[Rfam]
Nucleotides: 122
Stems, first nucleotide, its partner, number of pairs: 011026006028051003033046002036042002093109006
Number, partner (000 for none) and nucleotide at each position: 001000u002000g003000u004000g005000u006000u007000a008000a009000g010000a011026a012025g013024a014023a015022a016021c017000a018000g019000c020000c021016g022015u023014u024013u025012c026011u027000c028051a029050c030049c031000u032000u033046a034045c035000a036042g037041c038000a039000a040000a041037g042036c043000u044000a045034g046033u047000a048000a049030g050029g051028u052000u053000a054000u055000g056000g057000a058000u059000u060000a061000c062000u063000u064000a065000c066000u067000a068000u069000u070000u071000g072000u073000u074000u075000a076000u077000g078000a079000a080000u081000g082000u083000g084000g085000u086000a087000a088000u089000u090000g091000a092000g093109g094108g095107c096106g097105g098104c099000u100000u101000u102000a103000u104098g105097c106096c107095g108094c109093c110000c111000u112000u113000u114000u115000a116000u117000u118000a119000u120000u121000u122000a
Ribosomal protein L20 leader: a 122-nucleotide RNA sequence from Clostridium manihotivorum.
A search with the family's covariance model found it, with a score of 71 bits.
For this family Rfam cites "Diverse mechanisms for regulating ribosomal protein synthesis in Escherichia coli" (Zengel and Lindahl, Prog Nucleic Acid Res Mol Biol, 1994).